[Rfam]
RNA sequence: UCGCCACGAGGUGAAGUGGUCGGGUUAUGAACUUCAGUCUGAAGUUUCGGACCCAGGAAAGUCCCCGGGCCAAUUACUGCAGAGAUGCAGACUCGGAAACGAGUAGUCUUCGUAAGUCGGGAAGUCCUCUCGCCUCUCGGCGGGGGCUGAGACGCGUGCGGAGCCCUUUAGGACUUUCCGUCGAAGGCUCUUGGCCGUUGGUACACAGUUAUCCACUUGGUCCAUCUGGACUAACAGAACGGGGCUUAUCCUCUCGUGGCA
Numbered sequence: 001u002c003g004c005c006a007c008g009a010g011g012u013g014a015a016g017u018g019g020u021c022g023g024g025u026u027a028u029g030a031a032c033u034u035c036a037g038u039c040u041g042a043a044g045u046u047u048c049g050g051a052c053c054c055a056g057g058a059a060a061g062u063c064c065c066c067g068g069g070c071c072a073a074u075u076a077c078u079g080c081a082g083a084g085a086u087g088c089a090g091a092c093u094c095g096g097a098a099a100c101g102a103g104u105a106g107u108c109u110u111c112g113u114a115a116g117u118c119g120g121g122a123a124g125u126c127c128u129c130u131c132g133c134c135u136c137u138c139g140g141c142g143g144g145g146g147c148u149g150a151g152a153c154g155c156g157u158g159c160g161g162a163g164c165c166c167u168u169u170a171g172g173a174c175u176u177u178c179c180g181u182c183g184a185a186g187g188c189u190c191u192u193g194g195c196c197g198u199u200g201g202u203a204c205a206c207a208g209u210u211a212u213c214c215a216c217u218u219g220g221u222c223c224a225u226c227u228g229g230a231c232u233a234a235c236a237g238a239a240c241g242g243g244g245c246u247u248a249u250c251c252u253c254u255c256g257u258g259g260c261a
Stems, first nucleotide, its partner, number of pairs: 003260009014218006022054004034042003059247003063244004078089004091104005124188003132181002144166004154159001220231004
Rfam assigns this 261-nucleotide RNA from Morella rubra to the family "RNase MRP". Rfam's curators write: RNase MRP is an enzymatically active ribonucleoprotein with two distinct roles in eukaryotes. In mitochondria it plays a direct role in the initiation of mitochondrial DNA replication. In the nucleus it is involved in precursor rRNA processing, where it cleaves the internal transcribed spacer 1 between 18S and 5.8S rRNAs. It is annotated as a ribozyme.